[Rfam]
RNA sequence: CGUUAACGCGAGGAGACAGACAUGGGACUUACACAAUCCUUGAAUGUCCUUUUGGUCAGCGCGGCGUUUGCAUUUGUAUUGACAAUGCUUUUCAUCUGAACGUCGUGCCAAUCGAACAGUGCCGAGACUCCUGAGUAGCGAAACAGUUCAAUGAAUCGGAAAAGCGCAUCCCACGAGGAGAUGCGCUUU
Numbered sequence: 001c002g003u004u005a006a007c008g009c010g011a012g013g014a015g016a017c018a019g020a021c022a023u024g025g026g027a028c029u030u031a032c033a034c035a036a037u038c039c040u041u042g043a044a045u046g047u048c049c050u051u052u053u054g055g056u057c058a059g060c061g062c063g064g065c066g067u068u069u070g071c072a073u074u075u076g077u078a079u080u081g082a083c084a085a086u087g088c089u090u091u092u093c094a095u096c097u098g099a100a101c102g103u104c105g106u107g108c109c110a111a112u113c114g115a116a117c118a119g120u121g122c123c124g125a126g127a128c129u130c131c132u133g134a135g136u137a138g139c140g141a142a143a144c145a146g147u148u149c150a151a152u153g154a155a156u157c158g159g160a161a162a163a164g165c166g167c168a169u170c171c172c173a174c175g176a177g178g179a180g181a182u183g184c185g186c187u188u189u
Stems, first nucleotide, its partner, number of pairs: 015048004024040004161189010172178001